Background
Bacterial large signal recognition particle RNA: a 264-nucleotide sequence from Clostridium amylolyticum. The source organism's lineage runs through Bacteria, Bacillati, Bacillota, Clostridiaceae and Clostridium.
[Rfam]
RNA sequence: CCGUGCUAGAUGGGGAGUUAGCGGUGCCCUGUACCUGCAAUCCGCUACAGCAGGAUUGAAUUCCUUACUUCGGCUUUAACCUGUAGGGUCUGCCCCAUAUAAGUGGUGUUGAGAGUUGGGUCCCACGCAACGGAAGCCCGUGAACCCCGUCAGGUCCGGAAGGAAGCAGCGGUAAGUGGAAUCUUUCGUGUGCCGUGGAUCAACCUAGCUUGAGCUAACUGUAUGGGUAACGCUUAUAGGUUACUGUCAACGUAAGGUGCACGG
Numbered sequence: 001c002c003g004u005g006c007u008a009g010a011u012g013g014g015g016a017g018u019u020a021g022c023g024g025u026g027c028c029c030u031g032u033a034c035c036u037g038c039a040a041u042c043c044g045c046u047a048c049a050g051c052a053g054g055a056u057u058g059a060a061u062u063c064c065u066u067a068c069u070u071c072g073g074c075u076u077u078a079a080c081c082u083g084u085a086g087g088g089u090c091u092g093c094c095c096c097a098u099a100u101a102a103g104u105g106g107u108g109u110u111g112a113g114a115g116u117u118g119g120g121u122c123c124c125a126c127g128c129a130a131c132g133g134a135a136g137c138c139c140g141u142g143a144a145c146c147c148c149g150u151c152a153g154g155u156c157c158g159g160a161a162g163g164a165a166g167c168a169g170c171g172g173u174a175a176g177u178g179g180a181a182u183c184u185u186u187c188g189u190g191u192g193c194c195g196u197g198g199a200u201c202a203a204c205c206u207a208g209c210u211u212g213a214g215c216u217a218a219c220u221g222u223a224u225g226g227g228u229a230a231c232g233c234u235u236a237u238a239g240g241u242u243a244c245u246g247u248c249a250a251c252g253u254a255a256g257g258u259g260c261a262c263g264g
Base pairs, nucleotide, nucleotide: 001264002263003262004261005260006259009057010056011055012030013029014028015027017025018024019023034054035053036052037051038050063257064256065255066254067253068252072248073247074246078242079241080240081239082238083237084236085235086234087233091229092228095226096225097224098223099222100221103219104218105216106215107214113211114210115209116208117207118206119205120204121203123198124197125196126195127194128190129189131188132187133186134185135184138179139178140177141176147172148171149170150169155164156163157162